[Rfam]
RNA: glmS glucosamine-6-phosphate activated ribozyme aptamer
RNA sequence: GAAGCAAGUUAAGCGCCAGAGCUUGCGUGAUGAACGAGCUGUUGCCCAGGGUGAGAGCCUUGGCAUAAAACAGCUGUUCAUACGGGAAGCUGACGAGGUGAAGGUGUUCGAAACAUUCGGCGGGGACCUUCCGGUAUUGCAAGCCAACCGAAAGCCGUAACGUAAAACGGCCGGGCGACCGGUCAUACAAUCGUGCGGCAGGCUUAUUA
Dot-bracket structure: ...................(((((.(..........................................................).)))))........(((((...((((.....))))......)))))((((..((.....))))))...((((((.........((((((....)))))).........))))))..........